[Rfam]
RNA sequence: UCAUAACUGGUUCGAAACCCUCCCAGUAUAAAAAACUAGGUCAUG
Numbered sequence: 001u002c003a004u005a006a007c008u009g010g011u012u013c014g015a016a017a018c019c020c021u022c023c024c025a026g027u028a029u030a031a032a033a034a035a036c037u038a039g040g041u042c043a044u045g
Stems, first nucleotide, its partner, number of pairs: 006027005016037001
Description:
Shown here is a 45-nucleotide RNA from Blautia obeum, a member of the family "PreQ1 (pre queuosine) riboswitch aptamer". The base pairs follow the family's consensus structure. It is one of the family's seed sequences. The organism belongs to Blautia obeum, within Bacteria. For this family Rfam cites "Identification of four genes necessary for biosynthesis of the modified nucleoside queuosine" (Reader et al., J Biol Chem, 2004). About the family: This family is a bacterial riboswitch that binds to the metabolite preQ1, an intermediate in the biosynthesis of the modified nucleoside queuosine from GTP. One example of this riboswitch is located in the leader of the Bacillus subtilis ykvJKLM (queCDEF) operon which encodes four genes necessary for queuosine production. PreQ1 binding to the riboswitch aptamer is thought to induce premature transcription termination within the leader to down-regulate expression of these genes.